[Rfam]
RNA sequence: GACACCACACUGCUGAACCGCCCCGCCGUGUUCCGGCGCCGGGGCGGGCGGGGGACCCAUCGACGUAUGGGGCGAAUCCUGCCUACGGGCGGGUAGCGCGCCUCUUUCCGCGCGAGCCCGACAGCUCACCCCGCAAGCGCGAGCGAAAGAGGAG
Number, nucleotide and partner (000 for none) at each position: 001g000002a000003c000004a000005c000006c000007a000008c000009a000010c000011u139012g138013c137014u136015g000016a000017a000018c047019c046020g045021c044022c043023c042024c041025g040026c000027c000028g000029u000030g000031u000032u000033c000034c000035g000036g000037c000038g000039c000040c025041g024042g023043g022044g021045c020046g019047g018048g134049c133050g132051g131052g130053g129054g000055a000056c000057c000058c069059a068060u000061c000062g000063a000064c000065g000066u000067a000068u059069g058070g119071g118072g117073c000074g000075a000076a000077u000078c093079c092080u091081g090082c000083c000084u000085a000086c000087g000088g000089g000090c081091g080092g079093g078094u000095a000096g113097c112098g111099c110100g000101c000102c000103u000104c000105u000106u000107u000108c000109c000110g099111c098112g097113c096114g000115a000116g000117c072118c071119c070120g000121a000122c000123a000124g000125c000126u000127c000128a000129c053130c052131c051132c050133g049134c048135a000136a014137g013138c012139g011140c000141g000142a000143g000144c000145g000146a000147a000148a000149g000150a000151g000152g000153a000154g000

The family of this 154-nucleotide RNA from Capillimicrobium parvum is "c-di-AMP riboswitch aptamer (ydaO/yuaA leader)". The match comes from Rfam's covariance-model search (69 bits). The organism belongs to Capillimicrobium, within Bacteria.